[Rfam]
RNA sequence: UAACAGUGGUAACGGCAGCUUCGUAUAACCCCGGCAAUGGGGCCGGGGGUCUCUACCAGGUGACCGGAAUCACCUGACUACGAAGUUAAUUCUUCGUAUG
Numbered sequence: 001u002a003a004c005a006g007u008g009g010u011a012a013c014g015g016c017a018g019c020u021u022c023g024u025a026u027a028a029c030c031c032c033g034g035c036a037a038u039g040g041g042g043c044c045g046g047g048g049g050u051c052u053c054u055a056c057c058a059g060g061u062g063a064c065c066g067g068a069a070u071c072a073c074c075u076g077a078c079u080a081c082g083a084a085g086u087u088a089a090u091u092c093u094u095c096g097u098a099u100g
Stems, first nucleotide, its partner, number of pairs: 018086008029048007057076007

Rfam assigns this 100-nucleotide RNA from Thermanaeromonas sp. C210 to the family "Purine riboswitch aptamer".